[Rfam]
RNA sequence: CAGGGGGACUAGGGGUGAGCAGGCCCAGACCCCAGCUCAUGCUCACUUCAGUCCCUCCCUA
Dot-bracket structure: ..((((((((.(((((((((((((..........)))..))))))))))))))))))....
RNA: mir-6794 microRNA precursor family